Shown here is a 75-nucleotide RNA sequence from Dorcoceras hygrometricum, a member of the family "Small nucleolar RNA R12".
From the family's description: snoR12 is a C/D box small nucleolar RNA, which acts as a methylation guide for 25S ribosomal RNA in plants. snoR12 has been alternatively named snoZ44 in Arabidopsis and snoZ131 in rice.
Rfam links the family to the GO terms nucleolus and RNA processing.

[Rfam]
RNA sequence: UUGGGGUUGAAGAAACAAGACGGAUUCCCACUGGUUUUAUGCCUUGUUUCAAAAAAUCAGCUACUUCUGAUCCGC
Numbered sequence: 001u002u003g004g005g006g007u008u009g010a011a012g013a014a015a016c017a018a019g020a021c022g023g024a025u026u027c028c029c030a031c032u033g034g035u036u037u038u039a040u041g042c043c044u045u046g047u048u049u050c051a052a053a054a055a056a057u058c059a060g061c062u063a064c065u066u067c068u069g070a071u072c073c074g075c
Stems, first nucleotide, its partner, number of pairs: 002074004

On this family, see Chen et al., Nucleic Acids Res 2003: "The high diversity of snoRNAs in plants: identification and comparative study of 120 snoRNA genes from Oryza sativa".